This 102-nucleotide RNA sequence from Enterococcus aquimarinus belongs to the Rfam family "Purine riboswitch aptamer".
Its Rfam clan is "Purine riboswitches".
Rfam describes the family as follows. Riboswitches are metabolite binding domains within certain messenger RNAs that serve as precision sensors for their corresponding targets.
The base pairs follow the family's consensus structure, which is taken from published work.

[Rfam]
RNA sequence: UGAUAUCCAAGGAAGAAAAACCAUAUAGUUCUGGUAAUACGGUCCAGAAGUUUCUACAAGUUACCCAAUAAGUAACUUACUAUGGCAAGAGUCCUUUGUGUC
Numbered sequence: 001u002g003a004u005a006u007c008c009a010a011g012g013a014a015g016a017a018a019a020a021c022c023a024u025a026u027a028g029u030u031c032u033g034g035u036a037a038u039a040c041g042g043u044c045c046a047g048a049a050g051u052u053u054c055u056a057c058a059a060g061u062u063a064c065c066c067a068a069u070a071a072g073u074a075a076c077u078u079a080c081u082a083u084g085g086c087a088a089g090a091g092u093c094c095u096u097u098g099u100g101u102c
Stems, first nucleotide, its partner, number of pairs: 021085005029049006058078007